Annotation
Vertebrate telomerase RNA: a 444-nucleotide RNA from Herpele squalostoma. Its family is annotated with telomerase activity, telomere maintenance via telomerase and telomerase catalytic core complex in the Gene Ontology. Rfam's curators put it in the seed alignment.
RNA sequence: UCUCUCUGGAGCGGGGCGAUUUCUCUUCCUUCUAACCCUAAUGCGGUGCUUAGGCGACAGUUCUCCGGGUGCGCUCGCUGUUUUUCUGGCUAACUUUCAGCGAGCGGAGAGAGCGAAGCCGUGGUUUACGACGAUAGAGGAGAAAAAAUGUUAGCUGGGGAACGUCCCUUUCCCGAGAGCCCGCGCCAUCCUCUUCCUCGGGCCCAUUGGCGAUAGCCCCCGGCCUCCCUCGCUCACCAGGCCGCGGUCAGCCCGGGCCCUGGCUCUGCUAGGGCGUCCAAUGCUGCCGCGAAGAGUUCGUCUCUGAUUGCCUUGAGGUAGCCGGGCUCGAAUAGGUGGGCUCGCGGCGAUGCGCAGGAAAGAGCAAAACAGUGAACUGGGCGUGUGCUGGGGUCGCGUCCCUGAAGUGUGGGAUGUGCGAUCUGUCCGCUUGUUCAGACAUUG
Numbered sequence: 001u002c003u004c005u006c007u008g009g010a011g012c013g014g015g016g017c018g019a020u021u022u023c024u025c026u027u028c029c030u031u032c033u034a035a036c037c038c039u040a041a042u043g044c045g046g047u048g049c050u051u052a053g054g055c056g057a058c059a060g061u062u063c064u065c066c067g068g069g070u071g072c073g074c075u076c077g078c079u080g081u082u083u084u085u086c087u088g089g090c091u092a093a094c095u096u097u098c099a100g101c102g103a104g105c106g107g108a109g110a111g112a113g114c115g116a117a118g119c120c121g122u123g124g125u126u127u128a129c130g131a132c133g134a135u136a137g138a139g140g141a142g143a144a145a146a147a148a149u150g151u152u153a154g155c156u157g158g159g160g161a162a163c164g165u166c167c168c169u170u171u172c173c174c175g176a177g178a179g180c181c182c183g184c185g186c187c188a189u190c191c192u193c194u195u196c197c198u199c200g201g202g203c204c205c206a207u208u209g210g211c212g213a214u215a216g217c218c219c220c221c222g223g224c225c226u227c228c229c230u231c232g233c234u235c236a237c238c239a240g241g242c243c244g245c246g247g248u249c250a251g252c253c254c255g256g257g258c259c260c261u262g263g264c265u266c267u268g269c270u271a272g273g274g275c276g277u278c279c280a281a282u283g284c285u286g287c288c289g290c291g292a293a294g295a296g297u298u299c300g301u302c303u304c305u306g307a308u309u310g311c312c313u314u315g316a317g318g319u320a321g322c323c324g325g326g327c328u329c330g331a332a333u334a335g336g337u338g339g340g341c342u343c344g345c346g347g348c349g350a351u352g353c354g355c356a357g358g359a360a361a362g363a364g365c366a367a368a369a370c371a372g373u374g375a376a377c378u379g380g381g382c383g384u385g386u387g388c389u390g391g392g393g394u395c396g397c398g399u400c401c402c403u404g405a406a407g408u409g410u411g412g413g414a415u416g417u418g419c420g421a422u423c424u425g426u427c428c429g430c431u432u433g434u435u436c437a438g439a440c441a442u443u444g
Stems, first nucleotide, its partner, number of pairs: 006177002008171003013168006020161004060114005072106009089155006095148003180358002183355004201342008219326006228318005243291005249286004255279003293305004374436004379431002381428001383426002394421005399414004
The organism belongs to Herpele, within Eukaryota. A reference for the family is Fragnet et al. (2005), "Comparative functional study of the viral telomerase RNA based on natural mutations", J Biol Chem.